[Rfam]
RNA sequence: GAAUGAUAAAGGCAAAUUCAUCGAAAGGUGGAGGCGCAAAACUAUAGGGACUAAAGUCGUGAGAUCAUGUCAGCCAGUUGCCGAU
Numbered sequence: 001g002a003a004u005g006a007u008a009a010a011g012g013c014a015a016a017u018u019c020a021u022c023g024a025a026a027g028g029u030g031g032a033g034g035c036g037c038a039a040a041a042c043u044a045u046a047g048g049g050a051c052u053a054a055a056g057u058c059g060u061g062a063g064a065u066c067a068u069g070u071c072a073g074c075c076a077g078u079u080g081c082c083g084a085u
Stems, first nucleotide, its partner, number of pairs: 012037002017032006040079004047075002049071003056065003
The record is an 85-nucleotide RNA from Bacillaceae bacterium SAS-127, which matches "c-di-GMP-I riboswitch aptamer" in Rfam. Pairs were carried over by alignment from the consensus structure, which is taken from published work.